A member of the RNA family "skipping-rope RNA", 96 nucleotides long.
[Rfam]
RNA sequence: GACAUCUGAGGUGGUAAAUUUCGUGUCGACCACACGCUGAUGGCAUGAUAGGGGAAACCCGAGAGAUGCAGGGGCAUGGCACGCCUGCCGGAUGUU
Number, nucleotide and partner (000 for none) at each position: 001g096002a095003c094004a093005u092006c091007u090008g089009a000010g000011g033012u032013g031014g030015u029016a000017a000018a000019u000020u000021u000022c000023g082024u081025g080026u079027c078028g000029a015030c014031c013032a012033c011034a000035c063036g044037c043038u042039g000040a000041u000042g038043g037044c036045a000046u000047g000048a000049u000050a000051g000052g000053g000054g000055a000056a000057a000058c000059c000060c000061g000062a000063g035064a000065g000066a000067u000068g088069c087070a086071g085072g084073g000074g000075c000076a000077u000078g027079g026080c025081a024082c023083g000084c072085c071086u070087g069088c068089c008090g007091g006092a005093u004094g003095u002096u001